This 102-nucleotide RNA from Jeotgalibacillus soli belongs to the Rfam family "Purine riboswitch aptamer".
The organism belongs to Jeotgalibacillus, within Bacteria.

RNA sequence: ACAAACAAUCGAAUGAAAACUCAUAUAAUCGUAGGGAUAUGGCCUACAAGUUUCUACCAGGUUACCGUAAAUGACUUGACUAUGAGUGAUAAUCUUGCAUCG
Numbered sequence: 001a002c003a004a005a006c007a008a009u010c011g012a013a014u015g016a017a018a019a020c021u022c023a024u025a026u027a028a029u030c031g032u033a034g035g036g037a038u039a040u041g042g043c044c045u046a047c048a049a050g051u052u053u054c055u056a057c058c059a060g061g062u063u064a065c066c067g068u069a070a071a072u073g074a075c076u077u078g079a080c081u082a083u084g085a086g087u088g089a090u091a092a093u094c095u096u097g098c099a100u101c102g
Stems, first nucleotide, its partner, number of pairs: 019087007029049001031047005058078007